RNA: FMN riboswitch aptamer (RFN element)
Organism: Deinococcus proteolyticus
RNA sequence: AACCUCUUUCGGGGCGGGGUGAGAUUCCCCACCGGCGGUGUUCGCUGCGGGCUGGCAGGCCGCCCUGCCAGCCCUGAGCGGAGCGAAUAACAGUCACGUCCUGCGCGUGUUCUGACUUGCGCUCCACUGAGCAGCCUCAGCCCGCGAAGCCUGCCGACUUUUCCAUAACCGGGCAGGCCCGACCCAGUGCGAGUCUGGGGCCGACAGUGAAAGGGCCGGUUGCGGCCCCGCAGUCUGGAUGGGAGAAAGGGGAA
Numbered sequence: 001a002a003c004c005u006c007u008u009u010c011g012g013g014g015c016g017g018g019g020u021g022a023g024a025u026u027c028c029c030c031a032c033c034g035g036c037g038g039u040g041u042u043c044g045c046u047g048c049g050g051g052c053u054g055g056c057a058g059g060c061c062g063c064c065c066u067g068c069c070a071g072c073c074c075u076g077a078g079c080g081g082a083g084c085g086a087a088u089a090a091c092a093g094u095c096a097c098g099u100c101c102u103g104c105g106c107g108u109g110u111u112c113u114g115a116c117u118u119g120c121g122c123u124c125c126a127c128u129g130a131g132c133a134g135c136c137u138c139a140g141c142c143c144g145c146g147a148a149g150c151c152u153g154c155c156g157a158c159u160u161u162u163c164c165a166u167a168a169c170c171g172g173g174c175a176g177g178c179c180c181g182a183c184c185c186a187g188u189g190c191g192a193g194u195c196u197g198g199g200g201c202c203g204a205c206a207g208u209g210a211a212a213g214g215g216c217c218g219g220u221u222g223c224g225g226c227c228c229c230g231c232a233g234u235c236u237g238g239a240u241g242g243g244a245g246a247a248a249g250g251g252g253a254a
Stems, first nucleotide, its partner, number of pairs: 003252008017029003033203002035145004149178007183199005205237003